[Rfam]
The record is an 88-nucleotide RNA sequence from Variovorax sp. Root473, which matches "Pseudomonas sRNA P9" in Rfam. Rfam classes the family as a non-coding RNA gene. The organism belongs to Variovorax, within Bacteria. Rfam's curators write: This small RNA (sRNA) was computationally identified in the genome of the opportunistic pathogen Pseudomonas aeruginosa and its expression verified by northern blot analysis. P9 appears to be conserved in several Pseudomonas species in addition to Bordetella spp. In both Pseudomonas and Bordetella spp P9 appears to be located upstream of a predicted threonine dehydratase gene.
RNA sequence: UCGAUUAUUCGCACCAUCUUCCAGAUGGUGGGUUAGCGCGCGGUUCCACAAGUUCACGCCAUACGACCCGCCCCACGAGGCGGGUUUU
Numbered sequence: 001u002c003g004a005u006u007a008u009u010c011g012c013a014c015c016a017u018c019u020u021c022c023a024g025a026u027g028g029u030g031g032g033u034u035a036g037c038g039c040g041c042g043g044u045u046c047c048a049c050a051a052g053u054u055c056a057c058g059c060c061a062u063a064c065g066a067c068c069c070g071c072c073c074c075a076c077g078a079g080g081c082g083g084g085u086u087u088u
Base pairs, nucleotide, nucleotide: 012030013029014028015027016026017025065086066085067084068083069082070081071080072079